[Rfam]
RNA sequence: GGUUCCCAAGGUGGUAAAGUGUGGCAACCACGCGCCUUUCGGGCUAAAAGAGAUGCAGGGACAGCCACUCCUGCUGGGAACU
Numbered sequence: 001g002g003u004u005c006c007c008a009a010g011g012u013g014g015u016a017a018a019g020u021g022u023g024g025c026a027a028c029c030a031c032g033c034g035c036c037u038u039u040c041g042g043g044c045u046a047a048a049a050g051a052g053a054u055g056c057a058g059g060g061a062c063a064g065c066c067a068c069u070c071c072u073g074c075u076g077g078g079a080a081c082u
Stems, first nucleotide, its partner, number of pairs: 001082008011031005021068005033050001034044004055074005

Shown here is an 82-nucleotide sequence, a member of the family "skipping-rope RNA". The family's consensus secondary structure is taken from published work. Rfam classes the family as a small RNA.